Shown here is a 57-nucleotide RNA from Nostocoides jenkinsii, a member of the family "msiK RNA". The family has 120 seed sequences and 1,374 matches in Rfam 15.1. NCBI's taxonomy places the organism under Bacteria, Bacillati, Actinomycetota, Nostocoides, Nostocoides jenkinsii.
[Rfam]
RNA sequence: GUGCACCACCUUUACAACGGAUCGUCCGGCACGUUCCUGCCGGUGAAGGAGUCAUCC
Numbered sequence: 001g002u003g004c005a006c007c008a009c010c011u012u013u014a015c016a017a018c019g020g021a022u023c024g025u026c027c028g029g030c031a032c033g034u035u036c037c038u039g040c041c042g043g044u045g046a047a048g049g050a051g052u053c054a055u056c057c
Stems, first nucleotide, its partner, number of pairs: 009049006026043006

The family's consensus secondary structure is taken from published work.